[Rfam]
RNA sequence: UCGACAGGAGUGCUUCGGCAGGAGUGGAGGACCCAAGCAGUACGGGACAGCCGGCAGGUCCGGUCGUUCCUCGGGGUGAAGCCGCACGGCGGCCGGGAAACUUCGUCCACCCGAACCCGACAGGUCAUCCUUCACAGGCGGCUGACGAAGGGUUG
Dot-bracket structure: ((..................)).((((((....(......................................)(((.....((((...))))..(((............)))...)))...........))))))....................